RNA: Small nucleolar RNA snoR104
RNA sequence: GGGUGGUUUGUGUAAGUAGACAUCACACCCGAUACAAUCUUCCCAAAAAGAGUACAAUCUGUUUCUUCCUGCUUGCAGUAUCGCAAGUAUGUUCUGCGAGUCUCAAAGAUACCGGACAUAA
Dot-bracket structure: (((.(...(((........)))...).)))...........................(((..........((((((((.((.........)).))))))))............))).....